[Rfam]
RNA: Nuclear RNase P
Organism: Coturnix japonica
RNA sequence: UCCGGAGGAAGCUCACCGUCGAGGCCACGCACUGGGUGCCCAUCACCCGCUGUCCCCGCCUCGGGGAAGGUCUGAGGGAAGGGCCCGCAGCGGCUCCAGCAGAGCCCCGCCCGCACGGGUGGGUGAGCCACCAGCAAGGGGGGGCGCCGCGCGGGCCGGCCUGGGCAGGAGAAGCCCGGAACGGUUCGGAGCUCAGUGCUGAGCCGGGGCGGAUGCUCGUGGCCCCGCGGAGCUUUGAGACAGACUCACGGCCGGCGCAUUGAGUCCAAUGGGUGAGGUGGGGCAAUGCCGCACAACCUAAUUCAGACUACUCUCCGCCGGA
Numbered sequence: 001u002c003c004g005g006a007g008g009a010a011g012c013u014c015a016c017c018g019u020c021g022a023g024g025c026c027a028c029g030c031a032c033u034g035g036g037u038g039c040c041c042a043u044c045a046c047c048c049g050c051u052g053u054c055c056c057c058g059c060c061u062c063g064g065g066g067a068a069g070g071u072c073u074g075a076g077g078g079a080a081g082g083g084c085c086c087g088c089a090g091c092g093g094c095u096c097c098a099g100c101a102g103a104g105c106c107c108c109g110c111c112c113g114c115a116c117g118g119g120u121g122g123g124u125g126a127g128c129c130a131c132c133a134g135c136a137a138g139g140g141g142g143g144g145c146g147c148c149g150c151g152c153g154g155g156c157c158g159g160c161c162u163g164g165g166c167a168g169g170a171g172a173a174g175c176c177c178g179g180a181a182c183g184g185u186u187c188g189g190a191g192c193u194c195a196g197u198g199c200u201g202a203g204c205c206g207g208g209g210c211g212g213a214u215g216c217u218c219g220u221g222g223c224c225c226c227g228c229g230g231a232g233c234u235u236u237g238a239g240a241c242a243g244a245c246u247c248a249c250g251g252c253c254g255g256c257g258c259a260u261u262g263a264g265u266c267c268a269a270u271g272g273g274u275g276a277g278g279u280g281g282g283g284c285a286a287u288g289c290c291g292c293a294c295a296a297c298c299u300a301a302u303u304c305a306g307a308c309u310a311c312u313c314u315c316c317g318c319c320g321g322a
Base pairs, nucleotide, nucleotide: 001322002321003320004319007316008315009314012277013276014275015274016273017272020063021062022061023060024059034048035047036046037045038044072306073305074304075303076302082253083252084251085250092106093105094104095103096102107122108121109120110119111118112117123249124248125247126246127245129243143234144233145232278294279293280292282290283289284288